[Rfam]
RNA: Clostridiales-1 RNA
Organism: Butyrivibrio sp. INlla14
RNA sequence: UGAUGAUAUAGGUCUUCAAAGUCAUAUGUUGCCGUGCUAGCACGAAGCAACAUAUGACCUUGAAGACCGAACAAGCAUGAGGAAAAAAGCCGGACGAACAAAGUGAGAAUGGCGAUUUCCGAAUGCUUGCAGGAUUGCGAGAACGAAGAGGAGCAAUCCGAGAUCAUCA
Numbered sequence: 001u002g003a004u005g006a007u008a009u010a011g012g013u014c015u016u017c018a019a020a021g022u023c024a025u026a027u028g029u030u031g032c033c034g035u036g037c038u039a040g041c042a043c044g045a046a047g048c049a050a051c052a053u054a055u056g057a058c059c060u061u062g063a064a065g066a067c068c069g070a071a072c073a074a075g076c077a078u079g080a081g082g083a084a085a086a087a088a089g090c091c092g093g094a095c096g097a098a099c100a101a102a103g104u105g106a107g108a109a110u111g112g113c114g115a116u117u118u119c120c121g122a123a124u125g126c127u128u129g130c131a132g133g134a135u136u137g138c139g140a141g142a143a144c145g146a147a148g149a150g151g152a153g154c155a156a157u158c159c160g161a162g163a164u165c166a167u168c169a
Stems, first nucleotide, its partner, number of pairs: 001169007012067004018061002021058012033044004072129007081120004089113004095107001132159007144148001